[Rfam]
RNA sequence: CCCAUCAAUGAUGAUGAGCUCGUCUCCGACAUCACCGCCGGCCUCGACAUGGAGUACCAGCCACUCGUCUCCGCCAACCACGCCCGCACCAACACCAUCAACCUCGAUGAUCUCUACGCUCAGAUGAGCAACUUUGAUC
Numbered sequence: 001c002c003c004a005u006c007a008a009u010g011a012u013g014a015u016g017a018g019c020u021c022g023u024c025u026c027c028g029a030c031a032u033c034a035c036c037g038c039c040g041g042c043c044u045c046g047a048c049a050u051g052g053a054g055u056a057c058c059a060g061c062c063a064c065u066c067g068u069c070u071c072c073g074c075c076a077a078c079c080a081c082g083c084c085c086g087c088a089c090c091a092a093c094a095c096c097a098u099c100a101a102c103c104u105c106g107a108u109g110a111u112c113u114c115u116a117c118g119c120u121c122a123g124a125u126g127a128g129c130a131a132c133u134u135u136g137a138u139c
Stems, first nucleotide, its partner, number of pairs: 004138005088108001090106001092104001

Source information:
Rfam assigns this 139-nucleotide RNA sequence from Aegilops tauschii to the family "Small nucleolar RNA Z247". On this family, see Chen et al., Nucleic Acids Res 2003: "The high diversity of snoRNAs in plants: identification and comparative study of 120 snoRNA genes from Oryza sativa". The family's consensus secondary structure was predicted with PFOLD. Rfam 15.1 lists 7,071 matches to the family in 142 species. Rfam classes the family as a C/D-box small nucleolar RNA.